[Rfam]
RNA sequence: GUCAGCACCCCCGGCUGAAGCACGGGGGCUUCGUGCCCCCCUUUCAGGUAGCUGACCAGCUAUAGCCUUAACUGGCUCCGUGAGCGAGCAAGAGUUAAAGUUCCUACCCUGGAAUGCGUGCUAGUUCCAGGCCCUAGAACCGAAUCGUUAAACAUCUCUAAGGGGUUAAGGACGUGCGAUUUGGAUAGUACCGACUCUGAACAUUGGCG
Numbered sequence: 001g002u003c004a005g006c007a008c009c010c011c012c013g014g015c016u017g018a019a020g021c022a023c024g025g026g027g028g029c030u031u032c033g034u035g036c037c038c039c040c041c042u043u044u045c046a047g048g049u050a051g052c053u054g055a056c057c058a059g060c061u062a063u064a065g066c067c068u069u070a071a072c073u074g075g076c077u078c079c080g081u082g083a084g085c086g087a088g089c090a091a092g093a094g095u096u097a098a099a100g101u102u103c104c105u106a107c108c109c110u111g112g113a114a115u116g117c118g119u120g121c122u123a124g125u126u127c128c129a130g131g132c133c134c135u136a137g138a139a140c141c142g143a144a145u146c147g148u149u150a151a152a153c154a155u156c157u158c159u160a161a162g163g164g165g166u167u168a169a170g171g172a173c174g175u176g177c178g179a180u181u182u183g184g185a186u187a188g189u190a191c192c193g194a195c196u197c198u199g200a201a202c203a204u205u206g207g208c209g
Stems, first nucleotide, its partner, number of pairs: 001056006007049001009028002011025002014021002059208004064077004080202002084198001093196004102138002108131008140184009152175002155172003159168003
Notes: HNH endonuclease-associated RNA and ORF (HEARO) RNA: a 209-nucleotide RNA sequence from Limnospira maxima. The base pairs follow the family's consensus structure, which is taken from published work.